RNA sequence: AUUGGAUUCGGCGACAUGGUCCCAAAGACGGCCUUGGGGAUGAUCGUUGGCUCUAUCUGCGCACUUAUGGGUGUGCUCACCAUUGCCCUGCCUGUCCCGGUCAUCGUAUCCAAC
Numbered sequence: 001a002u003u004g005g006a007u008u009c010g011g012c013g014a015c016a017u018g019g020u021c022c023c024a025a026a027g028a029c030g031g032c033c034u035u036g037g038g039g040a041u042g043a044u045c046g047u048u049g050g051c052u053c054u055a056u057c058u059g060c061g062c063a064c065u066u067a068u069g070g071g072u073g074u075g076c077u078c079a080c081c082a083u084u085g086c087c088c089u090g091c092c093u094g095u096c097c098c099g100g101u102c103a104u105c106g107u108a109u110c111c112a113a114c
Base pairs, nucleotide, nucleotide: 002113004111005110007108009106010105011104013102014101015100018097019096021094037077038076040074050062051061
A member of the RNA family "Potassium channel RNA editing signal" from Plectus sambesii, 114 nucleotides long. Lineage of the source: Eukaryota > Ecdysozoa > Plectida > Plectoidea > Plectus. On this family, see Bhalla et al., Nat Struct Mol Biol 2004: "Control of human potassium channel inactivation by editing of a small mRNA hairpin".